The record is a 123-nucleotide RNA from [Eubacterium] saphenum, which matches "Ribosomal protein L10 leader" in Rfam. The source organism's lineage runs through Bacteria, Bacillati, Clostridia, Anaerovoracaceae and [Eubacterium] saphenum. Rfam's curators write: This family is a putative r-protein leader autoregulatory structure found in B. subtilis and other low-GC Gram-positive bacteria. A search with the family's covariance model found it, with a score of 58 bits. Gene Ontology term of the family: regulation of gene expression. Rfam classes the family as a cis-regulatory leader.

Nucleotides: 123
Stems, first nucleotide, its partner, number of pairs: 028059006034042002078108004083103005
Number, partner (000 for none) and nucleotide at each position: 001000g002000u003000a004000g005000u006000a007000u008000a009000u010000a011000a012000a013000u014000a015000u016000u017000a018000a019000c020000c021000g022000u023000a024000g025000a026000c027000a028059g029058c030057a031056g032055g033054a034042g035041c036000g037000u038000a039000c040000a041035g042034c043000u044000u045000a046000a047000a048000a049000u050000a051000c052000u053000a054033u055032c056031c057030u058029g059028c060000c061000g062000a063000g064000g065000u066000g067000c068000g069000u070000g071000a072000u073000a074000u075000a076000c077000c078108c079107c080106c081105u082000c083103g084102u085101c086100u087099a088000c089000a090000c091000a092000u093000u094000a095000c096000a097000a098000a099087u100086a101085g102084a103083c104000a105081g106080g107079g108078g109000u110000u111000u112000u113000u114000c115000g116000u117000a118000c119000c120000g121000a122000a123000u